[Rfam]
RNA sequence: AUUAUGAUACUUCCGUCCAGCCAUAGUUCAUCGCAAUGGGGGCGGCCUGCAGAAAUCCUGGAGGAGGUGUAUUCGUGCGCCUAUGA
Numbered sequence: 001a002u003u004a005u006g007a008u009a010c011u012u013c014c015g016u017c018c019a020g021c022c023a024u025a026g027u028u029c030a031u032c033g034c035a036a037u038g039g040g041g042g043c044g045g046c047c048u049g050c051a052g053a054a055a056u057c058c059u060g061g062a063g064g065a066g067g068u069g070u071a072u073u074c075g076u077g078c079g080c081c082u083a084u085g086a
Base pairs, nucleotide, nucleotide: 012083013045014044015043016042017041018040046064047063048062050060051059052058065082066081067080068079069078070077071076
Shown here is an 86-nucleotide sequence from Cohnella rhizosphaerae, a member of the family "pemK RNA". Lineage of the source: Bacteria > Bacillota > Bacilli > Caryophanales > Cohnella. The match comes from Rfam's covariance-model search (50 bits). By type it is a cis-regulatory element.